[Rfam]
RNA sequence: CUUCCCAUGUCUCCUUGUCAUUCUGCGCGCCAGUGUGUGAUGCUAGCGACUGGACGGAGAACUGAUAAGGGCGUGUGGGAAG
Dot-bracket structure: ...........(((((((((((((.(...((....................))..).)))).)))))))))...........
Numbered sequence: 001c002u003u004c005c006c007a008u009g010u011c012u013c014c015u016u017g018u019c020a021u022u023c024u025g026c027g028c029g030c031c032a033g034u035g036u037g038u039g040a041u042g043c044u045a046g047c048g049a050c051u052g053g054a055c056g057g058a059g060a061a062c063u064g065a066u067a068a069g070g071g072c073g074u075g076u077g078g079g080a081a082g
Stems, first nucleotide, its partner, number of pairs: 012071009021061004026056001030053002
Rfam assigns this 82-nucleotide sequence from Amphibalanus amphitrite to the family "mir-184 microRNA precursor family".
NCBI's taxonomy places the organism under Eukaryota, Mandibulata, Thecostraca, Amphibalaninae, Amphibalanus.
The literature on the family includes a 2005 paper in Genes Dev by Chen et al., "The developmental miRNA profiles of zebrafish as determined by small RNA cloning".
Rfam 15.1 lists 948 matches to the family in 823 species.